A member of the RNA family "Bacteroidetes FopS (family of paralogous sRNAs)" from Porphyromonas crevioricanis, 73 nucleotides long. Taxonomically the source falls in Porphyromonas (Bacteria, Pseudomonadati, Bacteroidia, Porphyromonadaceae).
RNA sequence: GUGUUUUUCAUGGUAUUAGAUUUAAGGUUAACGAGAAAAAGUCGGUUGUCGUGAGACAAUCGGCUUUUUUAUU
Numbered sequence: 001g002u003g004u005u006u007u008u009c010a011u012g013g014u015a016u017u018a019g020a021u022u023u024a025a026g027g028u029u030a031a032c033g034a035g036a037a038a039a040a041g042u043c044g045g046u047u048g049u050c051g052u053g054a055g056a057c058a059a060u061c062g063g064c065u066u067u068u069u070u071a072u073u
Base pairs, nucleotide, nucleotide: 044061045060046059047058048057049056050055